[Rfam]
RNA sequence: UUAAAGGGUCGGUUGGCUAUGUAUGCCACAAUCGCCCUCGACUGGUGAGUGUUGUAUGGCUAUAAAGACAUAUGACCGACAUAAUUUGUGGGACUCAGCAGGGUUGGCUCGCUCGGCCCACCCUCCUU
Numbered sequence: 001u002u003a004a005a006g007g008g009u010c011g012g013u014u015g016g017c018u019a020u021g022u023a024u025g026c027c028a029c030a031a032u033c034g035c036c037c038u039c040g041a042c043u044g045g046u047g048a049g050u051g052u053u054g055u056a057u058g059g060c061u062a063u064a065a066a067g068a069c070a071u072a073u074g075a076c077c078g079a080c081a082u083a084a085u086u087u088g089u090g091g092g093a094c095u096c097a098g099c100a101g102g103g104u105u106g107g108c109u110c111g112c113u114c115g116g117c118c119c120a121c122c123c124u125c126c127u128u
Stems, first nucleotide, its partner, number of pairs: 008080005014028004029051002032048005052075007098126001100124005106118004

Rfam assigns this 128-nucleotide sequence from Asparagus officinalis to the family "U11 spliceosomal RNA". Its Rfam clan is "U1 clan". The base pairs follow the family's consensus structure, which is taken from published work.